Rfam assigns this 82-nucleotide RNA sequence from Legionella pneumophila to the family "Legionella RNA 69". Rfam's curators write: Identified by strand specific sequencing of the transcriptional response during broth growth and during infection inside the host. Infection specific expression. Taxonomically the source falls in Legionella pneumophila subsp. pneumophila (Bacteria, Pseudomonadota, Legionellales, Legionella pneumophila). For this family Rfam cites "Sequencing illustrates the transcriptional response of Legionella pneumophila during infection and identifies seventy novel small non-coding RNAs" (Weissenmayer et al., PLoS One, 2011). The match comes from Rfam's covariance-model search (57 bits). Rfam classes the family as a small RNA.
[Rfam]
RNA sequence: AGACGAUGCUUACGCAUCUCCUCAGCCCAAACGAAUACUGGAUAUCGAUUGCUUCUUAUAUAACCCUUAUCUAUAACUCCCG
Numbered sequence: 001a002g003a004c005g006a007u008g009c010u011u012a013c014g015c016a017u018c019u020c021c022u023c024a025g026c027c028c029a030a031a032c033g034a035a036u037a038c039u040g041g042a043u044a045u046c047g048a049u050u051g052c053u054u055c056u057u058a059u060a061u062a063a064c065c066c067u068u069a070u071c072u073a074u075a076a077c078u079c080c081c082g
Stems, first nucleotide, its partner, number of pairs: 002020002005018005024054002027051001029049001033045001035043002